[Rfam]
RNA: Guanidine-I riboswitch aptamer
Organism: Paenibacillus faecis
RNA sequence: CACUUUGUUCCCUAGGGUUCCGCGGCGACGCUUGCGCCGGUCCGGUCCGAGAGGGAGCGUGCGGCGAAUACGCCGCGGACACGGAGGGAUAAAAGCCCGGGAGGA
Numbered sequence: 001c002a003c004u005u006u007g008u009u010c011c012c013u014a015g016g017g018u019u020c021c022g023c024g025g026c027g028a029c030g031c032u033u034g035c036g037c038c039g040g041u042c043c044g045g046u047c048c049g050a051g052a053g054g055g056a057g058c059g060u061g062c063g064g065c066g067a068a069u070a071c072g073c074c075g076c077g078g079a080c081a082c083g084g085a086g087g088g089a090u091a092a093a094a095g096c097c098c099g100g101g102a103g104g105a
Base pairs, nucleotide, nucleotide: 007058008057009056010055011054012053015048016047020045021044022042023039024038025037026036027035060077061076062075063074064073065072066071080100082103086098087097088096